Notes: Rfam assigns this 159-nucleotide RNA from Synergistes sp. 3_1_syn1 to the family "DUF2800 RNA". It is one of the family's seed sequences. The base pairs follow the family's consensus structure, which is taken from published work. The organism belongs to Synergistes, within Bacteria.

RNA sequence: CCACCUCAAAGUACAUCCGCUGAUCACGGAUGGUUCAGUGCGAUGAGGUGGACAGCAGAAUAACGUACAGCUGACUACUGAACAGGAAGCUGCAAUCCGAAACGGAGUAAUCCGUUAGGACUGCGGACGGCAUACUAUUGCCAUUUUUAGGUCGGCUCU
Numbered sequence: 001c002c003a004c005c006u007c008a009a010a011g012u013a014c015a016u017c018c019g020c021u022g023a024u025c026a027c028g029g030a031u032g033g034u035u036c037a038g039u040g041c042g043a044u045g046a047g048g049u050g051g052a053c054a055g056c057a058g059a060a061u062a063a064c065g066u067a068c069a070g071c072u073g074a075c076u077a078c079u080g081a082a083c084a085g086g087a088a089g090c091u092g093c094a095a096u097c098c099g100a101a102a103c104g105g106a107g108u109a110a111u112c113c114g115u116u117a118g119g120a121c122u123g124c125g126g127a128c129g130g131c132a133u134a135c136u137a138u139u140g141c142c143a144u145u146u147u148u149a150g151g152u153c154g155g156c157u158c159u
Stems, first nucleotide, its partner, number of pairs: 001051005007045002011041003014032005033083006069157006090126004102115005